[Rfam]
RNA sequence: AGGGCGAUCGGGUCCACCGCCCGGGUGACCAGGAGGUAGUCGCGCAUUGCUAUGGAGUGGCGCCCCUC
Number, nucleotide and partner (000 for none) at each position: 001a000002g000003g000004g063005c062006g061007a000008u059009c000010g000011g030012g029013u028014c000015c027016a026017c025018c024019g000020c000021c000022c000023g000024g018025g017026u016027g015028a013029c012030c011031a000032g000033g000034a000035g000036g000037u054038a053039g000040u052041c000042g050043c049044g048045c000046a000047u000048u044049g043050c042051u000052a040053u038054g037055g000056a000057g000058u000059g008060g000061c006062g005063c004064c000065c000066c000067u000068c000